[Rfam]
A member of the RNA family "U11 spliceosomal RNA" from Ricinus communis, 130 nucleotides long. It is annotated as a spliceosomal small nuclear RNA. Lineage of the source: Eukaryota > Viridiplantae > Magnoliopsida > Euphorbiaceae > Ricinus. Pairs were carried over by alignment from the consensus structure, which is taken from published work. Rfam's curators put it in the seed alignment.
RNA sequence: UAAAAGGGUCGGUUGGCUAAUUAUGCCACACUCAUCCUUGUUCGGUGAGUGCCGUAUGGCAAUCAAGACAUAUGGCCGACAUAAUUUGUGGAGCCUUAAUAGGGUUGGCCCGCUUGGUCGACCCUCUUGU
Numbered sequence: 001u002a003a004a005a006g007g008g009u010c011g012g013u014u015g016g017c018u019a020a021u022u023a024u025g026c027c028a029c030a031c032u033c034a035u036c037c038u039u040g041u042u043c044g045g046u047g048a049g050u051g052c053c054g055u056a057u058g059g060c061a062a063u064c065a066a067g068a069c070a071u072a073u074g075g076c077c078g079a080c081a082u083a084a085u086u087u088g089u090g091g092a093g094c095c096u097u098a099a100u101a102g103g104g105u106u107g108g109c110c111c112g113c114u115u116g117g118u119c120g121a122c123c124c125u126c127u128u129g130u
Stems, first nucleotide, its partner, number of pairs: 008080005014028004029051008052075007098128002101125006108119001110117002